[Rfam]
RNA: Xanthine riboswitch aptamer (NMT1 RNA)
RNA sequence: CUCAAGAGUAGAAGCGUUCAGCGGACCGCCCCAUCAGGCACCGCCCGGAAAUUGCUCUGUUG
Numbered sequence: 001c002u003c004a005a006g007a008g009u010a011g012a013a014g015c016g017u018u019c020a021g022c023g024g025a026c027c028g029c030c031c032c033a034u035c036a037g038g039c040a041c042c043g044c045c046c047g048g049a050a051a052u053u054g055c056u057c058u059g060u061u062g
Stems, first nucleotide, its partner, number of pairs: 005058006015047001018049002021044004027038001